[Rfam]
RNA sequence: AGGUCAUUUCAAAGAGGGCUGAUGGGACCAAAUCCUGGAGCCCUUAAUGCUGUGACCAAAGAUUGAAUUCUCCAUUGGAUAUAACAGUCACUCAAUAGUGCUAUGUUUUCCUGAUGGAGAUACAAGC
Numbered sequence: 001a002g003g004u005c006a007u008u009u010c011a012a013a014g015a016g017g018g019c020u021g022a023u024g025g026g027a028c029c030a031a032a033u034c035c036u037g038g039a040g041c042c043c044u045u046a047a048u049g050c051u052g053u054g055a056c057c058a059a060a061g062a063u064u065g066a067a068u069u070c071u072c073c074a075u076u077g078g079a080u081a082u083a084a085c086a087g088u089c090a091c092u093c094a095a096u097a098g099u100g101c102u103a104u105g106u107u108u109u110c111c112u113g114a115u116g117g118a119g120a121u122a123c124a125a126g127c
Base pairs, nucleotide, nucleotide: 002057003056004055005054006053007052014045015044016043017042018041019040020039023037026035069120070119071118072117073116077111078110079109084104086102087101089100090099091098092097
RNA: Small nucleolar RNA SNORA25